[Rfam]
RNA sequence: CAGGUACCUCGUUAGGUGAGGCUCCUGUACGGAGAUAGGCUACUGCCCAGAAACGUCCAAAGACGCCAACGGGUUUAACAGAGAUCAUCGGCUUAAGGUGAUCUAUAACGUAGCUAGCGACUAGAGAAAUCAUUGAAUAUAUUAUCCAUUAUGGAAUGUUCAUGUAACUAUUUCCUUAUGCCGUACAGUGCUAAAGCUCAAUGAAAGAGGAAAUCA
Numbered sequence: 001c002a003g004g005u006a007c008c009u010c011g012u013u014a015g016g017u018g019a020g021g022c023u024c025c026u027g028u029a030c031g032g033a034g035a036u037a038g039g040c041u042a043c044u045g046c047c048c049a050g051a052a053a054c055g056u057c058c059a060a061a062g063a064c065g066c067c068a069a070c071g072g073g074u075u076u077a078a079c080a081g082a083g084a085u086c087a088u089c090g091g092c093u094u095a096a097g098g099u100g101a102u103c104u105a106u107a108a109c110g111u112a113g114c115u116a117g118c119g120a121c122u123a124g125a126g127a128a129a130u131c132a133u134u135g136a137a138u139a140u141a142u143u144a145u146c147c148a149u150u151a152u153g154g155a156a157u158g159u160u161c162a163u164g165u166a167a168c169u170a171u172u173u174c175c176u177u178a179u180g181c182c183g184u185a186c187a188g189u190g191c192u193a194a195a196g197c198u199c200a201a202u203g204a205a206a207g208a209g210g211a212a213a214u215c216a
Stems, first nucleotide, its partner, number of pairs: 005212001007210004011202002013096001015198003020192003025188008039114005045074004054065004082104003087099003116176002

Shown here is a 216-nucleotide RNA sequence from Ignatzschineria ureiclastica, a member of the family "M-box riboswitch aptamer (ykoK leader)". Rfam links the family to the GO terms regulation of gene expression and response to magnesium ion. The source organism's lineage runs through Bacteria, Pseudomonadati, Gammaproteobacteria, Cardiobacteriales and Ignatzschineria. About the family: M-box riboswitch, also know as ykoK leader is described as a metaloregulatory RNA that sense divalent metals and function as a genetic control element of genes related to divalent metal transport in bacteria. It was first reported upstream of the B.subtilis ykoK gene and genes with related functions in other bacteria. A search with the family's covariance model found it, with a score of 135 bits. The pairing is the family consensus, mapped onto this sequence.